[Rfam]
RNA sequence: UCUGGCGAUGAUGACACACUUGCCCUCACUGAGAACGCUGUUCGGUAAUGAGCCCACUCGCGCUCAGAUGGGCUGAGCCAGA
Numbered sequence: 001u002c003u004g005g006c007g008a009u010g011a012u013g014a015c016a017c018a019c020u021u022g023c024c025c026u027c028a029c030u031g032a033g034a035a036c037g038c039u040g041u042u043c044g045g046u047a048a049u050g051a052g053c054c055c056a057c058u059c060g061c062g063c064u065c066a067g068a069u070g071g072g073c074u075g076a077g078c079c080a081g082a
Base pairs, nucleotide, nucleotide: 001082002081003080004079005078006077
The record is an 82-nucleotide RNA sequence from Patagioenas fasciata, which matches "Small nucleolar RNA SNORD103/SNORD85" in Rfam.
The base pairs follow the family's consensus structure.